[Rfam]
RNA sequence: GUGGCGGUGUAGUCCCAGGCGGCGUCCGCGUCCAGCAGGGCGUUCUCGCCGAAGCGGUCGCCGUCGGCGAGGACGGCGACCGCGACCUCGUCGCCGUACUUGCCGACCGAGGUCUGGCUGACCCGGCCGUGGGCGAUCAGGUGGAUCCGCUCGGCGGGGCUGCCGCGUUCGACCAGGACCUCACCGGCCCGGAAGUCGCGCUGGACGCACCGGCCGGCGAGCGCGGUCAGCACCUCCUCGUUCUCGAAGCCGCGCAGCAGGGCGAGUUCGCCGAGCUCGCGCGGGAUCACCCGGACGUCGCCGCCGUUCUGGAUGAACUCGAUGCGGCCGUCGCCGACGGUGUAGCUGAGCCGGCGGUUCACCCGGUAGGUGCCGCCCUUGGUCUCCACCCAGGGGAGCAUCCGCAGCAGCCACCGGGAAGUGAUCUCCUGCAUCUGCGGGGCGGACUUGGUCGUGCUGGCAAGGUUGCGGGCCGCCGCCGUGCUCAGGCUGGACUGUUGGGGCGCCGC
Number, nucleotide and partner (000 for none) at each position: 001g000002u000003g000004g000005c000006g390007g389008u388009g387010u000011a385012g384013u000014c382015c381016c000017a380018g000019g328020c327021g000022g325023c324024g000025u000026c000027c321028g320029c000030g318031u316032c315033c000034a000035g000036c312037a000038g310039g309040g308041c000042g000043u000044u000045c000046u000047c303048g302049c000050c300051g299052a298053a000054g233055c000056g000057g000058u229059c000060g227061c226062c225063g224064u223065c109066g108067g107068c000069g000070a000071g000072g000073a000074c000075g103076g000077c102078g101079a100080c000081c000082g097083c096084g095085a000086c093087c000088u000089c000090g000091u000092c000093g086094c000095c084096g083097u082098a000099c000100u079101u078102g077103c075104c000105g000106a000107c067108c066109g065110a000111g000112g000113u000114c000115u000116g000117g222118c221119u220120g000121a000122c217123c216124c000125g000126g000127c212128c000129g210130u209131g000132g000133g208134c207135g206136a000137u000138c203139a202140g201141g000142u000143g000144g199145a000146u000147c000148c000149g196150c195151u000152c000153g000154g000155c192156g000157g190158g189159g188160c187161u183162g182163c000164c000165g000166c000167g000168u000169u000170c000171g000172a000173c000174c000175a000176g000177g000178a000179c000180c000181u000182c162183a161184c000185c000186g000187g160188c159189c158190c157191g000192g155193a000194a000195g150196u149197c000198g000199c144200g000201c140202u139203g138204g000205a000206c135207g134208c133209a130210c129211c000212g127213g000214c000215c000216g123217g122218c000219g000220a119221g118222c117223g064224c063225g062226g061227u060228c000229a058230g000231c000232a000233c054234c000235u295236c294237c293238u000239c000240g290241u289242u000243c000244u286245c285246g000247a000248a000249g000250c000251c281252g280253c279254g278255c000256a277257g276258c275259a000260g271261g000262g269263c000264g000265a000266g000267u000268u000269c262270g000271c260272c000273g000274a000275g258276c257277u256278c254279g253280c252281g251282c000283g000284g000285g245286a244287u000288c000289a241290c240291c000292c000293g237294g236295a235296c000297g000298u052299c051300g050301c000302c048303g047304c000305c000306g000307u000308u040309c039310u038311g000312g036313a000314u000315g032316a031317a000318c030319u000320c028321g027322a000323u000324g023325c022326g000327g020328c019329c342330g341331u340332c339333g000334c000335c000336g000337a000338c000339g332340g331341u330342g329343u000344a000345g000346c000347u000348g000349a000350g000351c000352c000353g377354g376355c375356g374357g373358u000359u000360c372361a371362c370363c369364c000365g000366g000367u000368a000369g363370g362371u361372g360373c357374c356375g355376c354377c353378c000379u000380u017381g015382g014383u000384c012385u011386c000387c009388a008389c007390c006391c431392a430393g429394g428395g427396g426397a425398g000399c423400a422401u421402c000403c418404g000405c416406a000407g415408c000409a000410g000411c000412c000413a000414c000415c407416g405417g000418g403419a000420a000421g401422u400423g399424a000425u397426c396427u395428c394429c393430u392431g391432c000433a000434u000435c000436u000437g476438c475439g474440g473441g000442g000443c470444g469445g000446a467447c465448u464449u463450g000451g461452u460453c000454g000455u000456g000457c000458u000459g000460g452461c451462a000463a449464g448465g447466u000467u446468g000469c444470g443471g000472g000473c440474c439475g438476c437477c000478g509479c000480c505481g504482u503483g000484c501485u500486c497487a496488g495489g000490c000491u000492g000493g000494a000495c488496u487497g486498u000499u000500g485501g484502g000503g482504c481505g480506c000507c000508g000509c478
The record is a 509-nucleotide sequence from Kitasatospora indigofera, which matches "Saccharopolyspora sRNA 350" in Rfam. Rfam links the family to the GO term regulation of secondary metabolite biosynthetic process. The source organism's lineage runs through Bacteria, Actinomycetota, Kitasatosporales, Streptomycetaceae and Kitasatospora. The match comes from Rfam's covariance-model search (169 bits). Pairs were carried over by alignment from the consensus structure, which was predicted with RNAfold.